[Rfam]
RNA sequence: CUUUAUAGUACCUAUUCCAGUCCGAUUGCGAGAUUAAAAUUAGCUAUAAUUCUGCAUAUAAGAUACCAAAAUCUAUUCUGGUAUCUUGUGGGGUGAUAGCACAA
Numbered sequence: 001c002u003u004u005a006u007a008g009u010a011c012c013u014a015u016u017c018c019a020g021u022c023c024g025a026u027u028g029c030g031a032g033a034u035u036a037a038a039a040u041u042a043g044c045u046a047u048a049a050u051u052c053u054g055c056a057u058a059u060a061a062g063a064u065a066c067c068a069a070a071a072u073c074u075a076u077u078c079u080g081g082u083a084u085c086u087u088g089u090g091g092g093g094u095g096a097u098a099g100c101a102c103a104a
Base pairs, nucleotide, nucleotide: 021031022030043100044099045098046097047096050093051092052091055088056087061086062085063084064083065082066081067080068079070077071076